The family of this 69-nucleotide RNA from Chrysochloris asiatica is "mir-503 microRNA precursor family". Gene Ontology terms of the family: miRNA-mediated post-transcriptional gene silencing and RISC complex. For this family Rfam cites "MicroRNA identity and abundance in porcine skeletal muscles determined by deep sequencing" (Nielsen et al., Anim Genet, 2010).
[Rfam]
RNA sequence: UGCCCUAGCAGCGGGAACAGUACUGCAGCUGGCGCUGGACUCUGGAGUAUUGUUGCCGCUGCCCGGGCA
Numbered sequence: 001u002g003c004c005c006u007a008g009c010a011g012c013g014g015g016a017a018c019a020g021u022a023c024u025g026c027a028g029c030u031g032g033c034g035c036u037g038g039a040c041u042c043u044g045g046a047g048u049a050u051u052g053u054u055g056c057c058g059c060u061g062c063c064c065g066g067g068c069a
Stems, first nucleotide, its partner, number of pairs: 002068004008062007016054006023047002026044003031041002
Background: A search with the family's covariance model found it, with a score of 73 bits. Taxonomically the source falls in Chrysochloris (Eukaryota, Sarcopterygii, Mammalia, Eutheria).